About this RNA
This 102-nucleotide RNA from Exobacillus caeni belongs to the Rfam family "Purine riboswitch aptamer". NCBI's taxonomy places the organism under Bacteria, Bacillota, Bacilli, Caryophanales, Exobacillus. Pairs were carried over by alignment from the consensus structure, which is taken from published work. Riboswitches are metabolite binding domains within certain messenger RNAs that serve as precision sensors for their corresponding targets. Allosteric rearrangement of mRNA structure is mediated by ligand binding, and this results in modulation of gene expression. A class of riboswitches that selectively recognises guanine and becomes saturated at concentrations as low as 5 nM. In Bacillus subtilis, this mRNA motif is located on at least five separate transcriptional units that together encode 17 genes that are mostly involved in purine transport and purine nucleotide biosynthesis. It has also been shown that some members of this family are specific for adenine instead. Hence this family are termed purine riboswitches. Gene Ontology term of the family: purine nucleobase biosynthetic process.
RNA sequence: AAGCGAAUUAGAAUGUUCCUUCAUAUAUCCUUGAGAAUACGGCUCAAGAGUCUCUACCGGAUCACCGUAAAUGAUCUGACUAUGAAGGCAGAAGAUAGUUUG
Numbered sequence: 001a002a003g004c005g006a007a008u009u010a011g012a013a014u015g016u017u018c019c020u021u022c023a024u025a026u027a028u029c030c031u032u033g034a035g036a037a038u039a040c041g042g043c044u045c046a047a048g049a050g051u052c053u054c055u056a057c058c059g060g061a062u063c064a065c066c067g068u069a070a071a072u073g074a075u076c077u078g079a080c081u082a083u084g085a086a087g088g089c090a091g092a093a094g095a096u097a098g099u100u101u102g
Stems, first nucleotide, its partner, number of pairs: 018088008030048006058078007